[Rfam]
RNA sequence: CCCGUCCGCCUCCUGGACGAAGCGGCGCACCGAAACGAUGUCCGGGCUAGGCUGGCCGGGUGCGCCCUCUCCCGAGAGGGCGCAAAGCCGACAGCCGUCGCAUUCAGGGAGCUCACUCAUG
Numbered sequence: 001c002c003c004g005u006c007c008g009c010c011u012c013c014u015g016g017a018c019g020a021a022g023c024g025g026c027g028c029a030c031c032g033a034a035a036c037g038a039u040g041u042c043c044g045g046g047c048u049a050g051g052c053u054g055g056c057c058g059g060g061u062g063c064g065c066c067c068u069c070u071c072c073c074g075a076g077a078g079g080g081c082g083c084a085a086a087g088c089c090g091a092c093a094g095c096c097g098u099c100g101c102a103u104u105c106a107g108g109g110a111g112c113u114c115a116c117u118c119a120u121g
Base pairs, nucleotide, nucleotide: 061084062083063082064081066079067078068077069076087101088100090099091098092097
Streptomyces-metH RNA: a 121-nucleotide sequence from Streptomyces sp. TS71-3. A search with the family's covariance model found it, with a score of 94 bits. Lineage of the source: Bacteria > Actinomycetota > Actinomycetes > Kitasatosporales > Streptomyces. The family's RNA type in Rfam is small RNA.